[Rfam]
RNA: BsrC
RNA sequence: UCUCAUUUAAACGAUGCAUCCCCAACCACUAAUACAUCCUUGUAACCCUAUGUUACGCCAGUUUGGAUAAAUUUCAUUAAAAGAAA
Numbered sequence: 001u002c003u004c005a006u007u008u009a010a011a012c013g014a015u016g017c018a019u020c021c022c023c024a025a026c027c028a029c030u031a032a033u034a035c036a037u038c039c040u041u042g043u044a045a046c047c048c049u050a051u052g053u054u055a056c057g058c059c060a061g062u063u064u065g066g067a068u069a070a071a072u073u074u075c076a077u078u079a080a081a082a083g084a085a086a
Stems, first nucleotide, its partner, number of pairs: 035065002039061002041057006